[Rfam]
RNA sequence: ACGAGGAUGAUGAAAACAAUCAUUCGGAUUCCCAAUGAUUUCUCUUCAUAAUAGUUUUUAUUUGAAGAGCAGGUGAUCUUAAUCUAUUUUUUGACUCGU
Numbered sequence: 001a002c003g004a005g006g007a008u009g010a011u012g013a014a015a016a017c018a019a020u021c022a023u024u025c026g027g028a029u030u031c032c033c034a035a036u037g038a039u040u041u042c043u044c045u046u047c048a049u050a051a052u053a054g055u056u057u058u059u060a061u062u063u064g065a066a067g068a069g070c071a072g073g074u075g076a077u078c079u080u081a082a083u084c085u086a087u088u089u090u091u092u093g094a095c096u097c098g099u
Stems, first nucleotide, its partner, number of pairs: 001099005

Rfam assigns this 99-nucleotide RNA from Mikania micrantha to the family "Small nucleolar RNA R12". The family's consensus secondary structure was predicted with PFOLD. Gene Ontology terms of the family: nucleolus and RNA processing. By type it is a C/D-box small nucleolar RNA. The literature on the family includes a 2003 paper in Nucleic Acids Res by Chen et al., "The high diversity of snoRNAs in plants: identification and comparative study of 120 snoRNA genes from Oryza sativa". From the family's description: snoR12 is a C/D box small nucleolar RNA, which acts as a methylation guide for 25S ribosomal RNA in plants. snoR12 has been alternatively named snoZ44 in Arabidopsis and snoZ131 in rice. A search with the family's covariance model found it, with a score of 50 bits. NCBI's taxonomy places the organism under Eukaryota, Magnoliopsida, Mesangiospermae, campanulids, Mikania.